[Rfam]
RNA sequence: GCAUGGACGAAUACUGUGUUCUCUUUGUCAGUAGUCAACACAGCCAGACACCAUGCGAAAGCACAUUCUCCUCUGAAACGUCUUGAUGGGAUGCCGAGGGUUGUCAUUGGCAUGCCAUUAUGGAAGGGGAUCACAGAU
Numbered sequence: 001g002c003a004u005g006g007a008c009g010a011a012u013a014c015u016g017u018g019u020u021c022u023c024u025u026u027g028u029c030a031g032u033a034g035u036c037a038a039c040a041c042a043g044c045c046a047g048a049c050a051c052c053a054u055g056c057g058a059a060a061g062c063a064c065a066u067u068c069u070c071c072u073c074u075g076a077a078a079c080g081u082c083u084u085g086a087u088g089g090g091a092u093g094c095c096g097a098g099g100g101u102u103g104u105c106a107u108u109g110g111c112a113u114g115c116c117a118u119u120a121u122g123g124a125a126g127g128g129g130a131u132c133a134c135a136g137a138u
Stems, first nucleotide, its partner, number of pairs: 001056006014043006069130002071127002074124001077121001084120006091113006
The record is a 138-nucleotide RNA sequence from Sarcophilus harrisii, which matches "Small nucleolar RNA SNORA15" in Rfam. The base pairs follow the family's consensus structure, which was predicted with RNAfold. For this family Rfam cites "RNomics: an experimental approach that identifies 201 candidates for novel, small, non-messenger RNAs in mouse" (Huttenhofer et al., EMBO J, 2001). Rfam links the family to the GO terms nucleolus and RNA processing.